[Rfam]
RNA sequence: ACCUGCCAGAAACUGUCGUAAGAGCGCACGAUUUCACUAAUAUUAACUAAUAAAGGUCGACACCGUGCUCGUUUCGAAAGAAGGACAGGAUUAAGGUAGUGCGUCGCAGUAAUGCGUCUGCGGGAG
Numbered sequence: 001a002c003c004u005g006c007c008a009g010a011a012a013c014u015g016u017c018g019u020a021a022g023a024g025c026g027c028a029c030g031a032u033u034u035c036a037c038u039a040a041u042a043u044u045a046a047c048u049a050a051u052a053a054a055g056g057u058c059g060a061c062a063c064c065g066u067g068c069u070c071g072u073u074u075c076g077a078a079a080g081a082a083g084g085a086c087a088g089g090a091u092u093a094a095g096g097u098a099g100u101g102c103g104u105c106g107c108a109g110u111a112a113u114g115c116g117u118c119u120g121c122g123g124g125a126g
Base pairs, nucleotide, nucleotide: 003099004098005097006096007095014087015086016085017084022070023069024068025067026066027065072079073078101121102120103119105116106115107114108113

Rfam assigns this 126-nucleotide sequence to the family "lysM-TM7 RNA". Pairs were carried over by alignment from the consensus structure, which is taken from published work. Rfam classes the family as a cis-regulatory element.